[Rfam]
RNA sequence: UGCAAAUGAUGCUAACUUCAUUGUCUUUGAUACUAACUUGAUGACAACCACCAAGAUCGCUGAUGCA
Numbered sequence: 001u002g003c004a005a006a007u008g009a010u011g012c013u014a015a016c017u018u019c020a021u022u023g024u025c026u027u028u029g030a031u032a033c034u035a036a037c038u039u040g041a042u043g044a045c046a047a048c049c050a051c052c053a054a055g056a057u058c059g060c061u062g063a064u065g066c067a
Base pairs, nucleotide, nucleotide: 001067002066003065004064
The family of this 67-nucleotide RNA sequence from Ceuthmochares aereus is "Small nucleolar RNA SNORD24". The match comes from Rfam's covariance-model search (44 bits). NCBI's taxonomy places the organism under Eukaryota, Teleostomi, Amniota, Sauropsida, Ceuthmochares. The literature on the family includes a 1995 paper in Nucleic Acids Res by Qu et al., "U24, a novel intron-encoded small nucleolar RNA with two 12 nt long, phylogenetically conserved complementarities to 28S rRNA". Gene Ontology terms of the family: nucleolus and RNA processing. Rfam 15.1 lists 2,843 matches to the family in 1,188 species. Rfam classes the family as a C/D-box small nucleolar RNA.